[Rfam]
Shown here is a 188-nucleotide RNA sequence from Araneus ventricosus, a member of the family "U2 spliceosomal RNA".

RNA sequence: ACAUCUCUGUCCAGAUGGAAACAUUAAGGCAAACAAAUCUGUUCUUAUCAGCUUAAUAUCUGAUAUGGCACCCAUCGGGAGCCUUUAGAUGUUAAACUAAUUUUUUGAACAGGUUGCACGUUUGCAAUUUAUUGCAACUGCAACACGUAUGGCCUACCCUGUAGUGCGACGGAUAGGCCAUACGUGUU
Numbered sequence: 001a002c003a004u005c006u007c008u009g010u011c012c013a014g015a016u017g018g019a020a021a022c023a024u025u026a027a028g029g030c031a032a033a034c035a036a037a038u039c040u041g042u043u044c045u046u047a048u049c050a051g052c053u054u055a056a057u058a059u060c061u062g063a064u065a066u067g068g069c070a071c072c073c074a075u076c077g078g079g080a081g082c083c084u085u086u087a088g089a090u091g092u093u094a095a096a097c098u099a100a101u102u103u104u105u106u107g108a109a110c111a112g113g114u115u116g117c118a119c120g121u122u123u124g125c126a127a128u129u130u131a132u133u134g135c136a137a138c139u140g141c142a143a144c145a146c147g148u149a150u151g152g153c154c155u156a157c158c159c160u161g162u163a164g165u166g167c168g169a170c171g172g173a174u175a176g177g178c179c180a181u182a183c184g185u186g187u188u
Base pairs, nucleotide, nucleotide: 008023009022010021011018012017046065047064048063049062050061051060067083068082069081071079072078073077113144114143115142116141117140118139124135125134126133127132147183148182149181150180151179152178154176155175156174158172159171
The base pairs follow the family's consensus structure, which is taken from published work.
A search with the family's covariance model found it, with a score of 71 bits.
The family's RNA type in Rfam is spliceosomal small nuclear RNA.
Lineage of the source: Eukaryota > Metazoa > Arthropoda > Araneae > Araneus.